[Rfam]
RNA: Small nucleolar RNA SNORD34
RNA sequence: UGGUGUCUAUGAUGUUACUUUUACCUACAUUGUUUGACUACUUCUGAGAAAAACCUCCAGUCCUGAGACACCU
Numbered sequence: 001u002g003g004u005g006u007c008u009a010u011g012a013u014g015u016u017a018c019u020u021u022u023a024c025c026u027a028c029a030u031u032g033u034u035u036g037a038c039u040a041c042u043u044c045u046g047a048g049a050a051a052a053a054c055c056u057c058c059a060g061u062c063c064u065g066a067g068a069c070a071c072c073u
Base pairs, nucleotide, nucleotide: 002072004070005069006068007067